[Rfam]
RNA sequence: UGGUGACUGAUCAUCACCAUAGGGAGUGACUGAAUAAACUUACUGGCAACCGCUAGUUAAGGUGAUGAGACACAGGUGGUGCUGCUGCAGCGAUGCAGAAUCGACUUACCAGUCGGGUCUCAGGCAAAGGACGUAUUUUACACUGUAGUAAUGCCCGUCCUUUUGUUGGUAUACAGUAAUCCAACCUCCCACCCA
Numbered sequence: 001u002g003g004u005g006a007c008u009g010a011u012c013a014u015c016a017c018c019a020u021a022g023g024g025a026g027u028g029a030c031u032g033a034a035u036a037a038a039c040u041u042a043c044u045g046g047c048a049a050c051c052g053c054u055a056g057u058u059a060a061g062g063u064g065a066u067g068a069g070a071c072a073c074a075g076g077u078g079g080u081g082c083u084g085c086u087g088c089a090g091c092g093a094u095g096c097a098g099a100a101u102c103g104a105c106u107u108a109c110c111a112g113u114c115g116g117g118u119c120u121c122a123g124g125c126a127a128a129g130g131a132c133g134u135a136u137u138u139u140a141c142a143c144u145g146u147a148g149u150a151a152u153g154c155c156c157g158u159c160c161u162u163u164u165g166u167u168g169g170u171a172u173a174c175a176g177u178a179a180u181c182c183a184a185c186c187u188c189c190c191a192c193c194c195a
Stems, first nucleotide, its partner, number of pairs: 001019006022190005029063002042057006066122006073084003077111004085098005101116005127162007138151004143176004165185005
A member of the RNA family "manA RNA", 195 nucleotides long. Pairs were carried over by alignment from the consensus structure, which is taken from published work. About the family: manA RNA has been located in 5'UTR regions of genes of mannose or fructose metabolism. Has been proposed as a cis-regulatory element and as a riboswitch candidate for his complex secondary structure. The family's RNA type in Rfam is cis-regulatory element.